Rfam assigns this 88-nucleotide sequence from Dicentrarchus labrax to the family "mir-204 microRNA precursor family". Rfam links the family to the GO terms RISC complex and miRNA-mediated post-transcriptional gene silencing. A search with the family's covariance model found it, with a score of 87 bits. The base pairs follow the family's consensus structure, which was predicted with RNAalifold.
RNA sequence: AUGUGACCUGUGGGUUUCCCUUUGUCAUCCUAUGCCUGGAGAUGACUGUAAGGCAGGGACAGCAAAGGGGGACUCAGCCGUCACCCCU
Numbered sequence: 001a002u003g004u005g006a007c008c009u010g011u012g013g014g015u016u017u018c019c020c021u022u023u024g025u026c027a028u029c030c031u032a033u034g035c036c037u038g039g040a041g042a043u044g045a046c047u048g049u050a051a052g053g054c055a056g057g058g059a060c061a062g063c064a065a066a067g068g069g070g071g072a073c074u075c076a077g078c079c080g081u082c083a084c085c086c087c088u
Base pairs, nucleotide, nucleotide: 017070018069019068020067021066022065024063025062028059029058030057031056034054035053036052037051